[Rfam]
RNA sequence: AUGUGAGGUAGAGGCGCGAUAUUUAUUAGUUUUUCAUAGAGUUCGAGCAAACGAUGAAAUGAAAAAGAAGGAGAUAUCGCCGAAGUGUAAAGUAAGCUCAAUGCUUUAUGCUGGGUCUGCAGUGAAUAACUGCAGGACUGUCUCAAGUAUAGUUUCCCAACGUACUUGAGUUGUGCUAUCUCUAAA
Numbered sequence: 001a002u003g004u005g006a007g008g009u010a011g012a013g014g015c016g017c018g019a020u021a022u023u024u025a026u027u028a029g030u031u032u033u034u035c036a037u038a039g040a041g042u043u044c045g046a047g048c049a050a051a052c053g054a055u056g057a058a059a060u061g062a063a064a065a066a067g068a069a070g071g072a073g074a075u076a077u078c079g080c081c082g083a084a085g086u087g088u089a090a091a092g093u094a095a096g097c098u099c100a101a102u103g104c105u106u107u108a109u110g111c112u113g114g115g116u117c118u119g120c121a122g123u124g125a126a127u128a129a130c131u132g133c134a135g136g137a138c139u140g141u142c143u144c145a146a147g148u149a150u151a152g153u154u155u156c157c158c159a160a161c162g163u164a165c166u167u168g169a170g171u172u173g174u175g176c177u178a179u180c181u182c183u184a185a186a
Stems, first nucleotide, its partner, number of pairs: 006181006016080009031065007084112011113139002116136008142170009

Rfam assigns this 186-nucleotide sequence from Ureibacillus manganicus to the family "Lysine riboswitch aptamer".